[Rfam]
RNA sequence: ACAAAUAAAGGGAAUGAAGUUCUCCCUAAGUAAUAUAUUUACUUAAAACGCCUAUUAAAGCUGAUGACUUCUGCGAUUAA
Numbered sequence: 001a002c003a004a005a006u007a008a009a010g011g012g013a014a015u016g017a018a019g020u021u022c023u024c025c026c027u028a029a030g031u032a033a034u035a036u037a038u039u040u041a042c043u044u045a046a047a048a049c050g051c052c053u054a055u056u057a058a059a060g061c062u063g064a065u066g067a068c069u070u071c072u073g074c075g076a077u078u079a080a
Stems, first nucleotide, its partner, number of pairs: 010026004016071006050061002053058001

The family of this 80-nucleotide RNA sequence from Amygdalobacter nucleatus is "Fluoride riboswitch aptamer (crcB RNA motif)". On this family, see Ren et al., Nature 2012: "Fluoride ion encapsulation by Mg2+ ions and phosphates in a fluoride riboswitch". It scores 46 bits against the family's covariance model. Rfam links the family to the GO terms positive regulation of gene expression and response to fluoride.